[Rfam]
Rfam assigns this 421-nucleotide sequence from Francisella tularensis to the family "transfer-messenger RNA". Rfam's curators put it in the seed alignment.
RNA sequence: GGGGGCGAAUAUGGUUUCGACAUGAAUGUCAAAAUCUAAGGUGCAUGCCGAGGAAGUACCGUAACCUCGUUAAUAACAGUACAAAUGCCAAUAAUAACUGGCAACAAAAAAGCAAACCGCGUAGCGGCUAACGACAGCAACUUUGCUGCUGUUGCUAAAGCUGCCUAGUCUAGCUUAAUAACCUAGAUGCGCACGGAUAUGAUAGUCUUUCUUAUGACACUAUCUAUACAUCCGUUCAUAUUCCGCAUAAGACGGUCUUUGCUUUUUGUCUGGGAGUUAAGGCUGUAUUUAACAGACUCGCUAACUAUUACCCUGGCUAAUUGGGGAAUAGUCAAGCUAAACUCAAAUAGAUUAGCCUAAGCAUGUAGAUCCAAAGAUCUAGAGUUUGUGGACGCGGGUUCAAAUCCCGCCGCCUCCACCA
Numbered sequence: 001g002g003g004g005g006c007g008a009a010u011a012u013g014g015u016u017u018c019g020a021c022a023u024g025a026a027u028g029u030c031a032a033a034a035u036c037u038a039a040g041g042u043g044c045a046u047g048c049c050g051a052g053g054a055a056g057u058a059c060c061g062u063a064a065c066c067u068c069g070u071u072a073a074u075a076a077c078a079g080u081a082c083a084a085a086u087g088c089c090a091a092u093a094a095u096a097a098c099u100g101g102c103a104a105c106a107a108a109a110a111a112g113c114a115a116a117c118c119g120c121g122u123a124g125c126g127g128c129u130a131a132c133g134a135c136a137g138c139a140a141c142u143u144u145g146c147u148g149c150u151g152u153u154g155c156u157a158a159a160g161c162u163g164c165c166u167a168g169u170c171u172a173g174c175u176u177a178a179u180a181a182c183c184u185a186g187a188u189g190c191g192c193a194c195g196g197a198u199a200u201g202a203u204a205g206u207c208u209u210u211c212u213u214a215u216g217a218c219a220c221u222a223u224c225u226a227u228a229c230a231u232c233c234g235u236u237c238a239u240a241u242u243c244c245g246c247a248u249a250a251g252a253c254g255g256u257c258u259u260u261g262c263u264u265u266u267u268g269u270c271u272g273g274g275a276g277u278u279a280a281g282g283c284u285g286u287a288u289u290u291a292a293c294a295g296a297c298u299c300g301c302u303a304a305c306u307a308u309u310a311c312c313c314u315g316g317c318u319a320a321u322u323g324g325g326g327a328a329u330a331g332u333c334a335a336g337c338u339a340a341a342c343u344c345a346a347a348u349a350g351a352u353u354a355g356c357c358u359a360a361g362c363a364u365g366u367a368g369a370u371c372c373a374a375a376g377a378u379c380u381a382g383a384g385u386u387u388g389u390g391g392a393c394g395c396g397g398g399u400u401c402a403a404a405u406c407c408c409g410c411c412g413c414c415u416c417c418a419c420c421a
Stems, first nucleotide, its partner, number of pairs: 001417007021390007029382001034378004040372002044365005049069005056082004061077001156178001158176006191237001193235003200230002203222004210252007253285006268297004300337003304332005312325003316356004321350002394410005